[Rfam]
RNA sequence: AAAAAGCAGGGGUUGAAAGGGGAAGUAUUCCCUUUCCGUAGUCAGAAGGGUGCUCAGACGACUUUGUCGUCGUCGAAGGGAAA
Numbered sequence: 001a002a003a004a005a006g007c008a009g010g011g012g013u014u015g016a017a018a019g020g021g022g023a024a025g026u027a028u029u030c031c032c033u034u035u036c037c038g039u040a041g042u043c044a045g046a047a048g049g050g051u052g053c054u055c056a057g058a059c060g061a062c063u064u065u066g067u068c069g070u071c072g073u074c075g076a077a078g079g080g081a082a083a
Stems, first nucleotide, its partner, number of pairs: 015036002018034006057071005
RNA: Clostridiales-2 RNA